[Rfam]
RNA: serC leader
Nucleotides: 052
Base pairs, nucleotide, nucleotide: 011028012027013026014025015024016023033046034045035044036043037042
Number, partner (000 for none) and nucleotide at each position: 001000c002000g003000g004000c005000g006000g007000g008000a009000c010000a011028u012027c013026c014025c015024c016023c017000c018000c019000c020000a021000a022000c023016g024015g025014g026013g027012g028011a029000c030000g031000c032000u033046u034045a035044u036043c037042u038000g039000g040000a041000a042037g043036g044035a045034u046033a047000u048000c049000a050000u051000g052000a